[Rfam]
RNA sequence: CAUCGGCACCUUUCACUACGGAUCGUCCGGCACGUACCUGCCGGUGAAGGGACACCAUC
Numbered sequence: 001c002a003u004c005g006g007c008a009c010c011u012u013u014c015a016c017u018a019c020g021g022a023u024c025g026u027c028c029g030g031c032a033c034g035u036a037c038c039u040g041c042c043g044g045u046g047a048a049g050g051g052a053c054a055c056c057a058u059c
Stems, first nucleotide, its partner, number of pairs: 009051007027044006
Rfam assigns this 59-nucleotide sequence from Actinomyces massiliensis to the family "msiK RNA". The family's RNA type in Rfam is cis-regulatory element. It scores 64 bits against the family's covariance model. The base pairs follow the family's consensus structure, which is taken from published work.